[Rfam]
RNA sequence: AUUCCGGCGGCGGCACGAACUCUUCGUGCGCGCUGCCCACGCGAGGAGGGGAUAGAUCAACGCGUCAAGAAAUCGUUUCAGUUGCCAUGACUCCAGUAGGCAAUAUGAUUGUUGCUUGACCACAG
Numbered sequence: 001a002u003u004c005c006g007g008c009g010g011c012g013g014c015a016c017g018a019a020c021u022c023u024u025c026g027u028g029c030g031c032g033c034u035g036c037c038c039a040c041g042c043g044a045g046g047a048g049g050g051g052a053u054a055g056a057u058c059a060a061c062g063c064g065u066c067a068a069g070a071a072a073u074c075g076u077u078u079c080a081g082u083u084g085c086c087a088u089g090a091c092u093c094c095a096g097u098a099g100g101c102a103a104u105a106u107g108a109u110u111g112u113u114g115c116u117u118g119a120c121c122a123c124a125g
Stems, first nucleotide, its partner, number of pairs: 006037006013029006064120001066118004072109004081104006